The family of this 67-nucleotide RNA from Scleromatobacter humisilvae is "Betaproteobacteria toxic small RNA". Overexpression in amino aid rich medium attenuates growth, suggesting role in repressing amino acid intake and metabolism. On this family, see Sass et al., Sci Rep 2017: "Identification of small RNAs abundant in Burkholderia cenocepacia biofilms reveal putative regulators with a potential role in carbon and iron metabolism". NCBI's taxonomy places the organism under Bacteria, Pseudomonadati, Betaproteobacteria, Burkholderiales, Scleromatobacter. The match comes from Rfam's covariance-model search (53 bits). Pairs were carried over by alignment from the consensus structure, which was predicted with WAR.

RNA sequence: UGUCUCCUCCACCUCCUCAAAACUGGUGGAUUCAGGCCCGAAGCUGUGAAGCUCCGGGCCUUUUUCU
Numbered sequence: 001u002g003u004c005u006c007c008u009c010c011a012c013c014u015c016c017u018c019a020a021a022a023c024u025g026g027u028g029g030a031u032u033c034a035g036g037c038c039c040g041a042a043g044c045u046g047u048g049a050a051g052c053u054c055c056g057g058g059c060c061u062u063u064u065u066c067u
Base pairs, nucleotide, nucleotide: 008030009029010028011027012026013025035060036059037058038057039056040055042053